[Rfam]
RNA sequence: CAAUCGGCCCUUUUCAGGGCCACAAAUCUAUUUAAAACGUGGUUUU
Numbered sequence: 001c002a003a004u005c006g007g008c009c010c011u012u013u014u015c016a017g018g019g020c021c022a023c024a025a026a027u028c029u030a031u032u033u034a035a036a037a038c039g040u041g042g043u044u045u046u
Base pairs, nucleotide, nucleotide: 006021007020008019009018010017011016